RNA sequence: GGCACUGUAGCCAAGUGGUUACGGCGUCACGUUUAGGUCAAGGCCGAGUCCGUGAUGGGAAACCGCGCGAGUUCGAAUCUCGUCAGUGUCA
Numbered sequence: 001g002g003c004a005c006u007g008u009a010g011c012c013a014a015g016u017g018g019u020u021a022c023g024g025c026g027u028c029a030c031g032u033u034u035a036g037g038u039c040a041a042g043g044c045c046g047a048g049u050c051c052g053u054g055a056u057g058g059g060a061a062a063c064c065g066c067g068c069g070a071g072u073u074c075g076a077a078u079c080u081c082g083u084c085a086g087u088g089u090c091a
Base pairs, nucleotide, nucleotide: 001090002089003088004087005086006085007084010025011024012023027055028054029053030052031051067083068082069081070080071079
RNA: tRNA